The family of this 121-nucleotide sequence is "drum RNA".
The family's consensus secondary structure is taken from published work.
[Rfam]
RNA sequence: UGCCUAUGAAGCGGCUACUAUGUUGGUGUGUGGCUGUGGAGGUGCUAUUAGGGUUGUGUGGUGAAUAUACUCCAAGUUCCAACUUAGGCUUAAUUGAAAGCUGAAAAUAAAAACACUCAAA
Numbered sequence: 001u002g003c004c005u006a007u008g009a010a011g012c013g014g015c016u017a018c019u020a021u022g023u024u025g026g027u028g029u030g031u032g033g034c035u036g037u038g039g040a041g042g043u044g045c046u047a048u049u050a051g052g053g054u055u056g057u058g059u060g061g062u063g064a065a066u067a068u069a070c071u072c073c074a075a076g077u078u079c080c081a082a083c084u085u086a087g088g089c090u091u092a093a094u095u096g097a098a099a100g101c102u103g104a105a106a107a108u109a110a111a112a113a114c115a116c117u118c119a120a121a
Base pairs, nucleotide, nucleotide: 001044002043003042004041011037012036013035014034015033016032017031018030023081025079026078058116059115060114087102088101089100090099